[Rfam]
RNA sequence: UGAUGCACCUCAUCCGUCAGUGAAGAUCCCGGGUGGGCGAGGAAAUGGGAGGGAUC
Numbered sequence: 001u002g003a004u005g006c007a008c009c010u011c012a013u014c015c016g017u018c019a020g021u022g023a024a025g026a027u028c029c030c031g032g033g034u035g036g037g038c039g040a041g042g043a044a045a046u047g048g049g050a051g052g053g054a055u056c
Stems, first nucleotide, its partner, number of pairs: 008042004013037006025056006